[Rfam]
RNA sequence: UGCGCGGCGCGAAAGGCGGCUUUUUCGUACUGGAGAUCCCAGCAAUGGGGUUGAAGGUGCGAUCCACAUGCCGCCGGUGUCGCGCGUUCCGUCUCGAAACACGG
Numbered sequence: 001u002g003c004g005c006g007g008c009g010c011g012a013a014a015g016g017c018g019g020c021u022u023u024u025u026c027g028u029a030c031u032g033g034a035g036a037u038c039c040c041a042g043c044a045a046u047g048g049g050g051u052u053g054a055a056g057g058u059g060c061g062a063u064c065c066a067c068a069u070g071c072c073g074c075c076g077g078u079g080u081c082g083c084g085c086g087u088u089c090c091g092u093c094u095c096g097a098a099a100c101a102c103g104g
Base pairs, nucleotide, nucleotide: 001086002085003084004083005082006081007080008079009078010077015075016074025059037050038049039048040047041046089104090103091102092101